The family of this 53-nucleotide sequence from Ixodes scapularis is "Guanidine-II riboswitch aptamer (mini-ykkC)". A search with the family's covariance model found it, with a score of 34 bits. The family's consensus secondary structure is taken from published work. Taxonomically the source falls in Ixodes (Eukaryota, Bilateria, Acari, Ixodoidea).

[Rfam]
RNA sequence: CUUCGAGGACGACCUCAAGGAUGACGUUUAGGAUGACCUCGAGGACGACCUCA
Numbered sequence: 001c002u003u004c005g006a007g008g009a010c011g012a013c014c015u016c017a018a019g020g021a022u023g024a025c026g027u028u029u030a031g032g033a034u035g036a037c038c039u040c041g042a043g044g045a046c047g048a049c050c051u052c053a
Base pairs, nucleotide, nucleotide: 001020002019003018005016006015007014008013041052042051043050044049